[Rfam]
RNA sequence: GAGUGGCACUUGAAUUUGGGCAAAGUCUUAACUCAAGUGAACCGAGGAAGGCGCAGCGAAACCGAUACGGCCGCAGCACAUUUACGUGCGAGGGCCACCGUGUCAAAGCGCGGGAGCAAGGUUGCGACCCGAAAAACCAGGCUAUCUUAUACGCAGGCAGGGGUGAAGCGGUGCGAAAAGGCCACGUGGGAGGCCCGUUAGAGGGUUUGGUAUUCUACAUAUCUCUCGUGAUCUGCCGCAUAGGGGGGUGAAAGCCCUCGAGCCUGCGCAACAGCUGGUU
Numbered sequence: 001g002a003g004u005g006g007c008a009c010u011u012g013a014a015u016u017u018g019g020g021c022a023a024a025g026u027c028u029u030a031a032c033u034c035a036a037g038u039g040a041a042c043c044g045a046g047g048a049a050g051g052c053g054c055a056g057c058g059a060a061a062c063c064g065a066u067a068c069g070g071c072c073g074c075a076g077c078a079c080a081u082u083u084a085c086g087u088g089c090g091a092g093g094g095c096c097a098c099c100g101u102g103u104c105a106a107a108g109c110g111c112g113g114g115a116g117c118a119a120g121g122u123u124g125c126g127a128c129c130c131g132a133a134a135a136a137c138c139a140g141g142c143u144a145u146c147u148u149a150u151a152c153g154c155a156g157g158c159a160g161g162g163g164u165g166a167a168g169c170g171g172u173g174c175g176a177a178a179a180g181g182c183c184a185c186g187u188g189g190g191a192g193g194c195c196c197g198u199u200a201g202a203g204g205g206u207u208u209g210g211u212a213u214u215c216u217a218c219a220u221a222u223c224u225c226u227c228g229u230g231a232u233c234u235g236c237c238g239c240a241u242a243g244g245g246g247g248g249u250g251a252a253a254g255c256c257c258u259c260g261a262g263c264c265u266g267c268g269c270a271a272c273a274g275c276u277g278g279u280u
Base pairs, nucleotide, nucleotide: 005125008122009121010120011119025052026051027050028049032046033045034044056063069096070095071094072093076089077088078087079086099112100111101110102109128278129277131275137268138266139265140264141263142262146243148242149241150240152238153236154235155234156233157232158230161196162195163194164193168187169186170185173182174181201227202226203225204224207221209220245257246256247255

The record is a 280-nucleotide part of an RNA from Halorubrum sp. Ib24, which matches "Archaeal large subunit ribosomal RNA" in Rfam. The family's consensus secondary structure is taken from published work. Lineage of the source: Archaea > Methanobacteriati > Halobacteria > Haloferacaceae > Halorubrum. Gene Ontology terms of the family: ribosome and structural constituent of ribosome.